A member of the RNA family "U5 spliceosomal RNA" from Encephalitozoon cuniculi, 110 nucleotides long. The family has 180 seed sequences and 28,527 matches in Rfam 15.1. It is one of the family's seed sequences. The family's RNA type in Rfam is spliceosomal small nuclear RNA. From the family's description: U5 RNA is a component of both types of known spliceosome. The precise function of this molecule is unknown, though it is known that the 5' loop is required for splice site selection and p220 binding, and that both the 3' stem-loop and the Sm site are important for Sm protein binding and cap methylation. The base pairs follow the family's consensus structure, which is taken from published work.

RNA sequence: ACCCCUGGCCGCCUCGCCGAUAAGUACGAGUCUUUUGCCUUUUACUGAAGACUCCCAUGGCCAGGCAGUAGUGCCCACCACAAUUUUUGGAAUGCUGACUAGCUCAGCUU
Dot-bracket structure: ..(.((..(.((((.((((........((((((((...........))))))))...)))).)))).).)).).................(..(((((.....))))).)